[Rfam]
RNA sequence: CGGGGCGUAGCGCAGUUUGGUAGCGCGUUCGGUUCGGGUCCGAAAGGUCGUGGGUUCAAGUCCCGCCGCCCCGA
Numbered sequence: 001c002g003g004g005g006c007g008u009a010g011c012g013c014a015g016u017u018u019g020g021u022a023g024c025g026c027g028u029u030c031g032g033u034u035c036g037g038g039u040c041c042g043a044a045a046g047g048u049c050g051u052g053g054g055u056u057c058a059a060g061u062c063c064c065g066c067c068g069c070c071c072c073g074a
Base pairs, nucleotide, nucleotide: 001073002072003071004070005069006068007067010026011025012024013023028044029043030042031041032040050066051065052064053063054062

The record is a 74-nucleotide sequence from Thermovenabulum gondwanense, which matches "tRNA" in Rfam. The organism belongs to Thermovenabulum, within Bacteria. The family's RNA type in Rfam is transfer RNA. Rfam links the family to the GO term triplet codon-amino acid adaptor activity. Transfer RNA (tRNA) molecules are approximately 80 nucleotides in length. Their secondary structure includes four short double-helical elements and three loops (D, anti-codon, and T loops). Further hydrogen bonds mediate the characteristic L-shaped molecular structure. tRNAs have two regions of fundamental functional importance: the anti-codon, which is responsible for specific mRNA codon recognition, and the 3' end, to which the tRNAs corresponding amino acid is attached (by aminoacyl-tRNA synthetases). tRNAs cope with the degeneracy of the genetic code in two manners: having more than one tRNA (with a specific anti-codon) for a particular amino acid; and 'wobble' base-pairing, i.e. permitting non-standard base-pairing at the 3rd anti-codon position.